[Rfam]
Notes: Shown here is a 418-nucleotide RNA sequence from Pantoea agglomerans, a member of the family "cspA thermoregulator". The source organism's lineage runs through Bacteria, Pseudomonadati, Pseudomonadota, Enterobacterales and Pantoea.
RNA sequence: AUCGGUUUGGAACACAGACCUUAUGAAAGCAGUUUUAGUAAAGUAGUCCUCAGUUCAAGUGUUAUCCACAGAUAUCCUUCUUCGAGAGCCUCCUCCUAAGUGCCCAAUAAGUAAAUCUCUAACUACAGGCCAUCUUCGCCGCUCUUAGUGGCUAAUCGAUUAAGGAAAUAUCUAUGUCUAACAAAAUGACUGGUUUAGUAAAAUGGUUUAACUCAGAUAAAGGUUUUGGCUUUAUCACUCCCGAUGAUGGCAGCAAAGAUGUAUUCGUGCAUUUCUCUGCUAUCCAGGGUGAUAACUACAAAACGCUUGAUGAAGGUCAGAAAGUCUCCUUCACCAUUGAAAAUGGCGCCAAAGGCCCUGCAGCUGGCAACGUCACAGCGCAGUAAGCCGCGCUCAUUAUCAGCGAUGCUUACAAUAG
Numbered sequence: 001a002u003c004g005g006u007u008u009g010g011a012a013c014a015c016a017g018a019c020c021u022u023a024u025g026a027a028a029g030c031a032g033u034u035u036u037a038g039u040a041a042a043g044u045a046g047u048c049c050u051c052a053g054u055u056c057a058a059g060u061g062u063u064a065u066c067c068a069c070a071g072a073u074a075u076c077c078u079u080c081u082u083c084g085a086g087a088g089c090c091u092c093c094u095c096c097u098a099a100g101u102g103c104c105c106a107a108u109a110a111g112u113a114a115a116u117c118u119c120u121a122a123c124u125a126c127a128g129g130c131c132a133u134c135u136u137c138g139c140c141g142c143u144c145u146u147a148g149u150g151g152c153u154a155a156u157c158g159a160u161u162a163a164g165g166a167a168a169u170a171u172c173u174a175u176g177u178c179u180a181a182c183a184a185a186a187u188g189a190c191u192g193g194u195u196u197a198g199u200a201a202a203a204u205g206g207u208u209u210a211a212c213u214c215a216g217a218u219a220a221a222g223g224u225u226u227u228g229g230c231u232u233u234a235u236c237a238c239u240c241c242c243g244a245u246g247a248u249g250g251c252a253g254c255a256a257a258g259a260u261g262u263a264u265u266c267g268u269g270c271a272u273u274u275c276u277c278u279g280c281u282a283u284c285c286a287g288g289g290u291g292a293u294a295a296c297u298a299c300a301a302a303a304c305g306c307u308u309g310a311u312g313a314a315g316g317u318c319a320g321a322a323a324g325u326c327u328c329c330u331u332c333a334c335c336a337u338u339g340a341a342a343a344u345g346g347c348g349c350c351a352a353a354g355g356c357c358c359u360g361c362a363g364c365u366g367g368c369a370a371c372g373u374c375a376c377a378g379c380g381c382a383g384u385a386a387g388c389c390g391c392g393c394u395c396a397u398u399a400u401c402a403g404c405g406a407u408g409c410u411u412a413c414a415a416u417a418g
Stems, first nucleotide, its partner, number of pairs: 004020006029241001031239003042233002045231004049223002054221002061218003071209002074207003080176001082174001084172002094165002097162003102126001106124001108122001138152006178193003245339006258266002269327001271325004276321004280316002283310002286307002291304001293302001345358002348356003360384002363381001364378003387409002391405004

For this family Rfam cites "The cspA mRNA is a thermosensor that modulates translation of the cold-shock protein CspA" (Giuliodori et al., Mol Cell, 2010). The family's RNA type in Rfam is RNA thermoregulator.